[Rfam]
RNA sequence: UGAGGAAAGAGAGCGCAUGGGCUGCAUGUGUGACAUGCAGUUGACGAGGAAGAGGUUCUCCCCGGCGACGUGGAGCUAACCGGUUACCCACCCGGGAAAAUCGAAAGAUCAGCGGAUGCCUCCAGGGCUAUGCCACGGCCCUGUGGCCAGGUUCUCAGCCUGAGAACGGGUCAGGGUUCUUUCCUCCUGAAAAUCCAACAGACGCACCGUCAAAACCUCCGGGUGACUGGAGGGACAACGCGGUCGCGCCGUGGCCCGU
Number, nucleotide and partner (000 for none) at each position: 001u000002g000003a000004g000005g000006a000007a000008a000009g000010a000011g000012a000013g000014c000015g000016c000017a000018u000019g000020g042021g041022c040023u039024g038025c037026a036027u035028g000029u033030g000031u000032g000033a029034c000035a027036u026037g025038c024039a023040g022041u021042u020043g000044a000045c000046g000047a000048g000049g000050a000051a000052g122053a121054g120055g119056u000057u000058c000059u000060c112061c000062c000063c000064g000065g000066c000067g000068a000069c000070g000071u000072g000073g000074a000075g000076c000077u000078a000079a000080c000081c000082g000083g000084u000085u000086a000087c000088c000089c000090a000091c000092c000093c000094g000095g000096g000097a000098a000099a000100a000101u000102c000103g000104a000105a000106a000107g000108a000109u000110c000111a000112g060113c000114g000115g000116a000117u000118g000119c055120c054121u053122c052123c000124a000125g196126g195127g194128c000129u000130a000131u000132g000133c000134c000135a000136c000137g000138g000139c000140c000141c000142u000143g000144u000145g000146g000147c000148c000149a000150g000151g000152u000153u000154c000155u000156c000157a000158g000159c000160c000161u000162g000163a000164g000165a000166a000167c000168g000169g000170g000171u000172c000173a000174g000175g000176g000177u000178u000179c000180u000181u000182u000183c000184c000185u000186c000187c000188u000189g000190a000191a000192a000193a000194u127195c126196c125197a000198a000199c000200a000201g000202a000203c248204g247205c246206a244207c243208c242209g000210u000211c000212a000213a000214a000215a000216c233217c232218u231219c230220c229221g228222g227223g000224u000225g000226a000227c222228u221229g220230g219231a218232g217233g216234g000235a000236c000237a000238a000239c000240g000241c000242g208243g207244u206245c000246g205247c204248g203249c000250c000251g000252u000253g000254g000255c000256c000257c000258g000259u000